[Rfam]
RNA sequence: ACGAUUUUGGCCAUUUACGGUCAGGGUCAACUGUUGCCUGAAGAAGGGGACG
Dot-bracket structure: ........((((......))))..............................
Numbered sequence: 001a002c003g004a005u006u007u008u009g010g011c012c013a014u015u016u017a018c019g020g021u022c023a024g025g026g027u028c029a030a031c032u033g034u035u036g037c038c039u040g041a042a043g044a045a046g047g048g049g050a051c052g
Stems, first nucleotide, its partner, number of pairs: 009022004
Rfam assigns this 52-nucleotide sequence from Salmonella enterica to the family "algC RNA". Rfam's curators put it in the seed alignment. By type it is a cis-regulatory element. Taxonomically the source falls in Salmonella enterica subsp. houtenae serovar 16:z4,z32:-- (Bacteria, Pseudomonadati, Enterobacteriaceae, Salmonella).